[Rfam]
RNA sequence: UGCACAUAUGACUGCAAGUCGCUUUGGAUAAAAGCGUCUGCUAAAUGGCAGUGC
Number, nucleotide and partner (000 for none) at each position: 001u000002g000003c000004a000005c000006a000007u000008a000009u000010g000011a000012c000013u043014g041015c040016a039017a000018g000019u000020c036021g035022c034023u033024u032025u031026g000027g000028a000029u000030a000031a025032a024033a023034g022035c021036g020037u000038c000039u016040g015041c014042u000043a013044a000045a000046u000047g000048g000049c000050a000051g000052u000053g000054c000

Shown here is a 54-nucleotide RNA from Hucho hucho, a member of the family "UnaL2 LINE 3' element". Pairs were carried over by alignment from the consensus structure, which is taken from published work. It scores 68 bits against the family's covariance model. The organism belongs to Hucho, within Eukaryota. By type it is a cis-regulatory element. The eel long interspersed element (LINE) UnaL2 and its partner short interspersed element (SINE) share a conserved 3' tail containing a stem-loop that is critical for their retrotransposition.